[Rfam]
RNA: azaaromatic riboswitch aptamer (yjdF RNA)
Organism: Lactococcus hircilactis
RNA sequence: UAGAUAGAAGAUAAAAACACAUCCCGGUAGGUAGUCCGGGAGCGACAGUAGUCGUCAGUAACCUGCCUCCUUGGUUGUCCCUUCUUCUGCUUUAAGAU
Numbered sequence: 001u002a003g004a005u006a007g008a009a010g011a012u013a014a015a016a017a018c019a020c021a022u023c024c025c026g027g028u029a030g031g032u033a034g035u036c037c038g039g040g041a042g043c044g045a046c047a048g049u050a051g052u053c054g055u056c057a058g059u060a061a062c063c064u065g066c067c068u069c070c071u072u073g074g075u076u077g078u079c080c081c082u083u084c085u086u087c088u089g090c091u092u093u094a095a096g097a098u
Base pairs, nucleotide, nucleotide: 005089006088007087008086009085010084011083022041023040024039025038026037027036042055043054044053045052046051065075066074067073